[Rfam]
RNA sequence: CAGGUUUUGGAGUUAGUCGCUUGAUAAUUUUUAGAAUAAAAAUUUUUAAGAGGAAAGUCUGGACUUUAUAGGGCAAGAGAGGCAGUUAACGACUGCUGGGAGAAAUCUUAAGGAAAGUGCCACAGAAAAGAAACCGCCUGUAUUUUUUCAGGUAAGGGUGAAAAGGUAGUGUAAGAGACUACCAGUGAUUUAAGGGAUUAAAUUAGCUAGGUAAACCCCUCUCAAAGCAAGGGCAAGUAGAAAGCUAUUAAGAGACGGCCCGUCUUGGCUUGAUUGGUAGCUCGCUAAAAUCCAUAAGCAAUUAUUGAUUUAGAUAAAUGAUUAACAAAUACAGAAUCCGGCUUAUACCAAAGCCUAUAAG
Numbered sequence: 001c002a003g004g005u006u007u008u009g010g011a012g013u014u015a016g017u018c019g020c021u022u023g024a025u026a027a028u029u030u031u032u033a034g035a036a037u038a039a040a041a042a043u044u045u046u047u048a049a050g051a052g053g054a055a056a057g058u059c060u061g062g063a064c065u066u067u068a069u070a071g072g073g074c075a076a077g078a079g080a081g082g083c084a085g086u087u088a089a090c091g092a093c094u095g096c097u098g099g100g101a102g103a104a105a106u107c108u109u110a111a112g113g114a115a116a117g118u119g120c121c122a123c124a125g126a127a128a129a130g131a132a133a134c135c136g137c138c139u140g141u142a143u144u145u146u147u148u149c150a151g152g153u154a155a156g157g158g159u160g161a162a163a164a165g166g167u168a169g170u171g172u173a174a175g176a177g178a179c180u181a182c183c184a185g186u187g188a189u190u191u192a193a194g195g196g197a198u199u200a201a202a203u204u205a206g207c208u209a210g211g212u213a214a215a216c217c218c219c220u221c222u223c224a225a226a227g228c229a230a231g232g233g234c235a236a237g238u239a240g241a242a243a244g245c246u247a248u249u250a251a252g253a254g255a256c257g258g259c260c261c262g263u264c265u266u267g268g269c270u271u272g273a274u275u276g277g278u279a280g281c282u283c284g285c286u287a288a289a290a291u292c293c294a295u296a297a298g299c300a301a302u303u304a305u306u307g308a309u310u311u312a313g314a315u316a317a318a319u320g321a322u323u324a325a326c327a328a329a330u331a332c333a334g335a336a337u338c339c340g341g342c343u344u345a346u347a348c349c350a351a352a353g354c355c356u357a358u359a360a361g
Base pairs, nucleotide, nucleotide: 002356003355004354005353006352007351008350009349010348011346012326013325014324015323016322017321018320020050021049022048023047024046026044027043028042029041030040031039055344056343057342059341060340061339062338063337064227065226066225067224072261073260077223078222079221080220081219082096083095084094085093086092097111098109099108100107101106112218113217117216118215119212120211121210134157135156136153137152138151139150140149142147165183166182167181168180169179170178185207186205187204188203189202190201191200192199193198231283232282233281234280241274242271243270244269245268246267252266253265254264255263256262290309291308292307294305295304296303297302
Overview
Rfam assigns this 361-nucleotide RNA sequence from Leptotrichia shahii to the family "Bacterial RNase P class A". The family is grouped with related families in Rfam's "RNaseP clan". Taxonomically the source falls in Leptotrichia (Bacteria, Fusobacteriati, Fusobacteriia, Leptotrichiaceae). A search with the family's covariance model found it, with a score of 273 bits. Its family is annotated with ribonuclease P activity, tRNA processing and dimeric ribonuclease P complex in the Gene Ontology.